[Rfam]
RNA sequence: CAGGAGGUUGCCGAAAAUCCUUUAACAAAGUAGGCA
Numbered sequence: 001c002a003g004g005a006g007g008u009u010g011c012c013g014a015a016a017a018u019c020c021u022u023u024a025a026c027a028a029a030g031u032a033g034g035c036a
Stems, first nucleotide, its partner, number of pairs: 002021004010035003

Shown here is a 36-nucleotide sequence, a member of the family "DUF805b RNA". A search with the family's covariance model found it, with a score of 42 bits.